[Rfam]
RNA sequence: AUUCCGAGGAGCGUUGCAACGGACCGGCAUCCGCCCGGCCGCCAGGCUCGGAAGUUCAAACGGCGCUCGCACUAU
Dot-bracket structure: .((((((............(((.(............).)))......))))))......................

Shown here is a 75-nucleotide RNA from Ralstonia pseudosolanacearum, a member of the family "SAH (S-adenosyl-L-homocysteine) riboswitch aptamer".